[Rfam]
RNA: L31-Actinobacteria ribosomal protein leader
RNA sequence: CCGGCUCCGGUUCACCCCGUGAAAUCCCGGGGACCCGGCGGCC
Numbered sequence: 001c002c003g004g005c006u007c008c009g010g011u012u013c014a015c016c017c018c019g020u021g022a023a024a025u026c027c028c029g030g031g032g033a034c035c036c037g038g039c040g041g042c043c
Stems, first nucleotide, its partner, number of pairs: 003043003007038004015032005021026001